[Rfam]
Nucleotides: 174
Base pairs, nucleotide, nucleotide: 012158013157014156018038019037039154040153041152042151043150044149049092050091093139094138095137101112102111103110104109115133116132117131118130
Number, partner (000 for none) and nucleotide at each position: 001000c002000g003000c004000u005000g006000u007000u008000u009000c010000a011000g012158g013157c014156c015000g016000a017000a018038a019037c020000g021000u022000c023000g024000g025000u026000g027000a028000c029000a030000a031000g032000c033000c034000g035000a036000g037019g038018u039154g040153c041152g042151g043150g044149g045000g046000a047000c048000g049092c050091a051000a052000g053000a054000c055000u056000u057000u058000c059000a060000g061000c062000g063000c064000g065000a066000c067000a068000g069000a070000c071000c072000a073000u074000c075000u076000u077000g078000a079000u080000c081000g082000c083000g084000u085000c086000u087000g088000a089000a090000u091050u092049g093139g094138g095137g096000u097000g098000a099000a100000u101112c102111g103110c104109g105000g106000c107000a108000a109104c110103g111102c112101g113000u114000a115133g116132g117131g118130c119000u120000g121000a122000c123000u124000c125000c126000u127000u128000c129000a130118g131117u132116u133115c134000g135000a136000a137095c138094c139093c140000g141000a142000c143000a144000a145000c146000u147000a148000a149044c150043c151042u152041c153040g154039u155000a156014g157013g158012u159000a160000c161000g162000g163000c164000c165000a166000a167000u168000u169000g170000c171000u172000u173000a174000g

The record is a 174-nucleotide RNA from Paenibacillus phyllosphaerae, which matches "c-di-AMP riboswitch aptamer (ydaO/yuaA leader)" in Rfam. The pairing is the family consensus, mapped onto this sequence. NCBI's taxonomy places the organism under Bacteria, Bacillota, Caryophanales, Paenibacillaceae, Paenibacillus. It scores 61 bits against the family's covariance model. Its family is annotated with regulation of gene expression and cyclic-di-AMP binding in the Gene Ontology.